Shown here is a 92-nucleotide RNA from Branchiostoma belcheri, a member of the family "mir-4876 microRNA precursor family". The base pairs follow the family's consensus structure, which was predicted with RNAalifold. The source organism's lineage runs through Eukaryota, Opisthokonta, Metazoa, Chordata and Branchiostoma. It is one of the family's seed sequences.
RNA sequence: CUUGCUCGCGGCCACAGGUCUCACCUGGUGCGUAACGCUGGUACUGUAACUCGCCUUACGUGCCACGUGAGGACUCUUGGACGCGAAGCUCU
Dot-bracket structure: ...(((((((.(((..((((((((.((((((((((.((.(((......))).)).)))))))))).)))).))))..))).)))).)))...
Numbered sequence: 001c002u003u004g005c006u007c008g009c010g011g012c013c014a015c016a017g018g019u020c021u022c023a024c025c026u027g028g029u030g031c032g033u034a035a036c037g038c039u040g041g042u043a044c045u046g047u048a049a050c051u052c053g054c055c056u057u058a059c060g061u062g063c064c065a066c067g068u069g070a071g072g073a074c075u076c077u078u079g080g081a082c083g084c085g086a087a088g089c090u091c092u
Stems, first nucleotide, its partner, number of pairs: 004089003007085004012080003017075004021070004026065010037054002040051003